[Rfam]
RNA sequence: AGCGACAGCUAGGGGAGCCAAAGGCUGAGAAUACACAUCUGUGUUGACCCUCAUUACUUGAACCGGUUAGUACCGGCGUAAGGAAGCAUCUUUUGUAUCCC
Numbered sequence: 001a002g003c004g005a006c007a008g009c010u011a012g013g014g015g016a017g018c019c020a021a022a023g024g025c026u027g028a029g030a031a032u033a034c035a036c037a038u039c040u041g042u043g044u045u046g047a048c049c050c051u052c053a054u055u056a057c058u059u060g061a062a063c064c065g066g067u068u069a070g071u072a073c074c075g076g077c078g079u080a081a082g083g084a085a086g087c088a089u090c091u092u093u094u095g096u097a098u099c100c101c
Stems, first nucleotide, its partner, number of pairs: 008087003011051004016045001017025003033044004057082004063076004